[Rfam]
RNA: Small nucleolar RNA SNORD30
Organism: Todus mexicanus
Nucleotides: 068
Base pairs, nucleotide, nucleotide: 023050024049025048026047027046030044031043032042033041
Number, partner (000 for none) and nucleotide at each position: 001000c002000c003000u004000c005000g006000u007000g008000a009000u010000g011000a012000c013000g014000u015000c016000a017000c018000a019000a020000g021000a022000a023050u024049c025048u026047c027046g028000u029000u030044c031043g032042g033041c034000u035000g036000a037000g038000g039000c040000u041033g042032c043031u044030g045000c046027u047026g048025a049024g050023a051000a052000a053000c054000u055000g056000g057000u058000g059000c060000c061000u062000g063000a064000u065000u066000u067000g068000g